[Rfam]
RNA sequence: GGCGAUAAACGGCCUUGUGUAAUAGAUGCAGCGGACCCGGGGGCAGUACCCGGCGGCUCCACCAAGAUCGGCGCUUUCGCGCCAGUGUUGACGGGGCCGAACCAGGAUCGACGUGUAUUCAAAGACAGGGUUUUUGCCCGGGCUGAGUAACCCGUAAAACUGUUCAAAACCUAUAAGUGCCAACGAUAACGAAGCACUCGCCAUCGCUGCGUAA
Numbered sequence: 001g002g003c004g005a006u007a008a009a010c011g012g013c014c015u016u017g018u019g020u021a022a023u024a025g026a027u028g029c030a031g032c033g034g035a036c037c038c039g040g041g042g043g044c045a046g047u048a049c050c051c052g053g054c055g056g057c058u059c060c061a062c063c064a065a066g067a068u069c070g071g072c073g074c075u076u077u078c079g080c081g082c083c084a085g086u087g088u089u090g091a092c093g094g095g096g097c098c099g100a101a102c103c104a105g106g107a108u109c110g111a112c113g114u115g116u117a118u119u120c121a122a123a124g125a126c127a128g129g130g131u132u133u134u135u136g137c138c139c140g141g142g143c144u145g146a147g148u149a150a151c152c153c154g155u156a157a158a159a160c161u162g163u164u165c166a167a168a169a170c171c172u173a174u175a176a177g178u179g180c181c182a183a184c185g186a187u188a189a190c191g192a193a194g195c196a197c198u199c200g201c202c203a204u205c206g207c208u209g210c211g212u213a214a
Stems, first nucleotide, its partner, number of pairs: 001138005015128004027117003031114003037053005054099007139154004
Rfam assigns this 214-nucleotide RNA sequence from Aurantiacibacter xanthus to the family "permuted transfer-messenger RNA". Rfam's curators write: Bacterial tmRNA, also known as 10Sa RNA or SsrA, is named for its dual tRNA and mRNA-like properties. Its role is to liberate the mRNA from a stalled ribosome. To accomplish this part of the tmRNA is used as a reading frame that ends in a translation stop signal. The broken mRNA is replaced in the ribosome by the tmRNA and translation of the tmRNA leads to addition of a proteolysis tag to the incomplete protein enabling recognition by a protease. Recently a number of permuted tmRNA genes have been found encoded in two parts. tmRNAs have been identified in eubacteria and some chloroplasts but are absent from archaeal and eukaryote nuclear genomes. Taxonomically the source falls in Aurantiacibacter (Bacteria, Pseudomonadati, Alphaproteobacteria, Erythrobacteraceae).